This 179-nucleotide sequence from Mesobacillus campisalis belongs to the Rfam family "Lysine riboswitch aptamer". Its family is annotated with lysine biosynthetic process in the Gene Ontology.
RNA sequence: CGGUGAGGUAGAGGAGCGAAUCUUAUUAGUAAUCCAUCGGAGUAUGACAUCGAUGAGGAUGGAUGAAAGGAAGAUUUGCCGAAGCGCAGCAAGGAGUCAAACUUGCUGCAGCUGGGAUGCUUUCUGAACAAGGAGCAGACUGUCAUGCUUGUUUAUGUGCAUGGAGGACUACUGAUCGA
Numbered sequence: 001c002g003g004u005g006a007g008g009u010a011g012a013g014g015a016g017c018g019a020a021u022c023u024u025a026u027u028a029g030u031a032a033u034c035c036a037u038c039g040g041a042g043u044a045u046g047a048c049a050u051c052g053a054u055g056a057g058g059a060u061g062g063a064u065g066a067a068a069g070g071a072a073g074a075u076u077u078g079c080c081g082a083a084g085c086g087c088a089g090c091a092a093g094g095a096g097u098c099a100a101a102c103u104u105g106c107u108g109c110a111g112c113u114g115g116g117a118u119g120c121u122u123u124c125u126g127a128a129c130a131a132g133g134a135g136c137a138g139a140c141u142g143u144c145a146u147g148c149u150u151g152u153u154u155a156u157g158u159g160c161a162u163g164g165a166g167g168a169c170u171a172c173u174g175a176u177c178g179a
Stems, first nucleotide, its partner, number of pairs: 007173005016079009032064007083113003086109008114141002118137006143164006

The family's consensus secondary structure is taken from published work. NCBI's taxonomy places the organism under Bacteria, Bacillati, Bacilli, Caryophanales, Mesobacillus. The family has 47 seed sequences and 3,224 matches in Rfam 15.1.